The record is an 80-nucleotide sequence, which matches "RAGATH-18 RNA" in Rfam.
It is annotated as a small RNA.
Actinobacteria, Firmicutes, Fusobacteria, Thermotogae (1 example).
[Rfam]
RNA sequence: ACUGUGGAGUAUACGUGAACUUGUGAGUAGUAUAUUUAAUUUUGUGUUGAAUUAUGAAAGCAUAUACGUUGAAGCAGUAA
Numbered sequence: 001a002c003u004g005u006g007g008a009g010u011a012u013a014c015g016u017g018a019a020c021u022u023g024u025g026a027g028u029a030g031u032a033u034a035u036u037u038a039a040u041u042u043u044g045u046g047u048u049g050a051a052u053u054a055u056g057a058a059a060g061c062a063u064a065u066a067c068g069u070u071g072a073a074g075c076a077g078u079a080a
Stems, first nucleotide, its partner, number of pairs: 001078005009067005022062003030055003035051006